Bacterial large subunit ribosomal RNA: a 231-nucleotide part of an RNA from [Eubacterium] yurii. NCBI's taxonomy places the organism under Bacteria, Peptostreptococcales, Filifactoraceae, [Eubacterium] yurii, [Eubacterium] yurii subsp. margaretiae.
RNA sequence: GAGUUAUGCUGUAAAGCAAGGAUAAUAAAUUAAGUUUAGCAUCCAAAGCGAAAGCGAGUCUUAAUAGGGCGUCAAGUUAUGCAGCAUAGACCCGAAACCGGGCGACCUACCCAUGAGCAGGUUGAAGUUUCAGUAACAUGAAAUGGAGGACCGAACCCACGAACGUUGAAAAGUUCGGGGAUGACUUGUGGGUAGCGGUGAAAUUCCAAUCGAGCUCGGAGAUAGCUGGUU
Numbered sequence: 001g002a003g004u005u006a007u008g009c010u011g012u013a014a015a016g017c018a019a020g021g022a023u024a025a026u027a028a029a030u031u032a033a034g035u036u037u038a039g040c041a042u043c044c045a046a047a048g049c050g051a052a053a054g055c056g057a058g059u060c061u062u063a064a065u066a067g068g069g070c071g072u073c074a075a076g077u078u079a080u081g082c083a084g085c086a087u088a089g090a091c092c093c094g095a096a097a098c099c100g101g102g103c104g105a106c107c108u109a110c111c112c113a114u115g116a117g118c119a120g121g122u123u124g125a126a127g128u129u130u131c132a133g134u135a136a137c138a139u140g141a142a143a144u145g146g147a148g149g150a151c152c153g154a155a156c157c158c159a160c161g162a163a164c165g166u167u168g169a170a171a172a173g174u175u176c177g178g179g180g181a182u183g184a185c186u187u188g189u190g191g192g193u194a195g196c197g198g199u200g201a202a203a204u205u206c207c208a209a210u211c212g213a214g215c216u217c218g219g220a221g222a223u224a225g226c227u228g229g230u231u
Stems, first nucleotide, its partner, number of pairs: 005088009015078003020044004026038003048055002058070004091229002094226001098219006107195011118183001120152004127144006156180003160177005197207002